Rfam assigns this 94-nucleotide RNA from Thalictrum thalictroides to the family "Small nucleolar RNA R64/Z200 family". By type it is a C/D-box small nucleolar RNA. Its family is annotated with nucleolus and RNA processing in the Gene Ontology. It scores 76 bits against the family's covariance model.

RNA sequence: AAUCUGUGGUGAUGAAUUCUGAAAUCUUCACAUGUCAGACUUCAGAGAUUUCUAUAGAGAUCUAUGAGAAGAGAAUUCAUUUUCUGAGCAGAGA
Numbered sequence: 001a002a003u004c005u006g007u008g009g010u011g012a013u014g015a016a017u018u019c020u021g022a023a024a025u026c027u028u029c030a031c032a033u034g035u036c037a038g039a040c041u042u043c044a045g046a047g048a049u050u051u052c053u054a055u056a057g058a059g060a061u062c063u064a065u066g067a068g069a070a071g072a073g074a075a076u077u078c079a080u081u082u083u084c085u086g087a088g089c090a091g092a093g094a
Stems, first nucleotide, its partner, number of pairs: 003092005047062004